Shown here is a 127-nucleotide RNA sequence from Cricetulus griseus, a member of the family "Small nucleolar RNA SNORA77". A search with the family's covariance model found it, with a score of 68 bits. A reference for the family is Schattner et al. (2006), "A computational screen for mammalian pseudouridylation guide H/ACA RNAs", RNA. Taxonomically the source falls in Cricetulus (Eukaryota, Craniata, Mammalia, Cricetidae).

RNA sequence: GCAGAUUCACUCUGCACCUGACUCUAGCUCGGUCUCAUGCCUUUUCUGUCUGCUAGAGAAACAGAAACAGAGGGUGCUGUGGCUACCUCUGCCUAUCAGGGCAGUGCAGCUUCCUGGGGACACAGUG
Numbered sequence: 001g002c003a004g005a006u007u008c009a010c011u012c013u014g015c016a017c018c019u020g021a022c023u024c025u026a027g028c029u030c031g032g033u034c035u036c037a038u039g040c041c042u043u044u045u046c047u048g049u050c051u052g053c054u055a056g057a058g059a060a061a062c063a064g065a066a067a068c069a070g071a072g073g074g075u076g077c078u079g080u081g082g083c084u085a086c087c088u089c090u091g092c093c094u095a096u097c098a099g100g101g102c103a104g105u106g107c108a109g110c111u112u113c114c115u116g117g118g119g120a121c122a123c124a125g126u127g
Stems, first nucleotide, its partner, number of pairs: 001053006014040003020034001022032002068118001071115004076110006084103001086101003
Rfam's curators write: ACA63 (SNORA77) is a member of the H/ACA class of snoRNAs that guide the sites of modification of uridines to pseudouridines. This snoRNA was identified by computational screening and its expression in mouse experimentally verified by Northern blot and primer extension analysis. ACA63 is proposed to guide the pseudouridylation of 18S rRNA U814.